A member of the RNA family "MIR7502 microRNA precursor family" from Gossypium laxum, 146 nucleotides long. It scores 80 bits against the family's covariance model. The family has 6 seed sequences and 74,505 matches in Rfam 15.1.
[Rfam]
RNA sequence: UAUUAAAAAUUCCAUCUAUUUCUACUUUAAAAAAAUUGAUCCUUAUAUGUCAGCAGGAGGUACACAUGGCACACCAUGUGUCACUAUUUGGUUAUUCUAUUAGCCAUGCUAGUUUUUAACAGUAUAAAUGGAUGAAAUUUUUAACA
Number, nucleotide and partner (000 for none) at each position: 001u000002a000003u144004u143005a142006a141007a140008a139009a138010u137011u136012c000013c134014a133015u132016c131017u000018a129019u128020u127021u126022c000023u124024a123025c122026u121027u000028u119029a000030a117031a116032a115033a114034a000035a000036u000037u000038g000039a000040u000041c000042c000043u000044u000045a000046u000047a000048u000049g000050u000051c000052a000053g000054c000055a000056g000057g000058a000059g000060g000061u000062a000063c000064a000065c000066a000067u000068g000069g000070c000071a000072c000073a000074c000075c000076a000077u000078g000079u000080g000081u000082c000083a000084c000085u000086a000087u000088u000089u000090g000091g000092u000093u000094a000095u000096u000097c000098u000099a000100u000101u000102a000103g000104c000105c000106a000107u000108g000109c000110u000111a000112g000113u000114u033115u032116u031117u030118a000119a028120c000121a026122g025123u024124a023125u000126a021127a020128a019129u018130g000131g016132a015133u014134g013135a000136a011137a010138u009139u008140u007141u006142u005143a004144a003145c000146a000